[Rfam]
RNA sequence: GCCAGGAAGAGAAAGAAUGGAUGGCCUGAGAGCAGUGGGAAUGGAAACAUGGAGGAAAGCCUAACUUGUUUGUAUUCUCCUCCAACAAUGAAUUUGGUUUGUGCUUUCCCAAUGCUUCCCGUUCCUAUUUCUCUUGAGCAAUUCUUCCUCAUUUUUGCU
Number, nucleotide and partner (000 for none) at each position: 001g000002c000003c000004a000005g000006g000007a000008a000009g150010a149011g000012a000013a000014a000015g147016a146017a145018u000019g000020g143021a142022u141023g000024g000025c138026c000027u136028g135029a134030g133031a132032g131033c000034a129035g000036u127037g126038g125039g124040a123041a122042u121043g120044g119045a000046a117047a000048c114049a113050u112051g000052g110053a000054g109055g108056a107057a106058a105059g104060c103061c000062u000063a000064a000065c000066u000067u000068g000069u000070u000071u000072g000073u000074a000075u000076u000077c000078u000079c000080c000081u000082c000083c000084a000085a000086c000087a000088a000089u000090g000091a000092a000093u000094u000095u000096g000097g000098u000099u000100u000101g000102u000103g060104c059105u058106u057107u056108c055109c054110c052111a000112a050113u049114g048115c000116u000117u046118c000119c044120c043121g042122u041123u040124c039125c038126u037127a036128u000129u034130u000131c032132u031133c030134u029135u028136g027137a000138g025139c000140a000141a022142u021143u020144c000145u017146u016147c015148c000149u010150c009151a000152u000153u000154u000155u000156u000157g000158c000159u000
RNA: MIR2118 microRNA precursor family
Organism: Setaria italica